The family of this 55-nucleotide RNA is "eL15-Euryarchaeota ribosomal protein leader". On this family, see Eckert and Weinberg, BMC Microbiol 2020: "Discovery of 20 novel ribosomal leader candidates in bacteria and archaea". Rfam's curators put it in the seed alignment.
[Rfam]
RNA sequence: CGGGAUCCGUCCCGUUGGAAUGUGGCCGCGAAAAAAAAGGCGGCUGAACCGUGAA
Numbered sequence: 001c002g003g004g005a006u007c008c009g010u011c012c013c014g015u016u017g018g019a020a021u022g023u024g025g026c027c028g029c030g031a032a033a034a035a036a037a038a039g040g041c042g043g044c045u046g047a048a049c050c051g052u053g054a055a
Stems, first nucleotide, its partner, number of pairs: 001014005016051003024045005